[Rfam]
RNA sequence: ACGCAUUCUUAUAAACCCCCCAAGAGCAGUGUUGUGUAGCUUCUGGGAUAUGAAAGAAUGCAAAAGAAAACCAAGAACUUUCCAAAGCUAUAUGUCUUUGCAGUGACUACUAGCUAUUUCACCUCUUGAACAUUC
Numbered sequence: 001a002c003g004c005a006u007u008c009u010u011a012u013a014a015a016c017c018c019c020c021c022a023a024g025a026g027c028a029g030u031g032u033u034g035u036g037u038a039g040c041u042u043c044u045g046g047g048a049u050a051u052g053a054a055a056g057a058a059u060g061c062a063a064a065a066g067a068a069a070a071c072c073a074a075g076a077a078c079u080u081u082c083c084a085a086a087g088c089u090a091u092a093u094g095u096c097u098u099u100g101c102a103g104u105g106a107c108u109a110c111u112a113g114c115u116a117u118u119u120c121a122c123c124u125c126u127u128g129a130a131c132a133u134u135c
Stems, first nucleotide, its partner, number of pairs: 003061004009053003019047004025041003066135002072128005086115005094107002098103001
Dot-bracket structure: ..((((..(((.......((((..(((...........)))..))))...)))....))))....((....(((((.........(((((...((..(....)..))...)))))........))))).....))
A member of the RNA family "Small nucleolar RNA SNORA14" from Labeo rohita, 135 nucleotides long. About the family: ACA14 is a member of the H/ACA class of snoRNA that guide the sites of modification of uridines to pseudouridines. A search with the family's covariance model found it, with a score of 63 bits. It is annotated as an H/ACA-box small nucleolar RNA.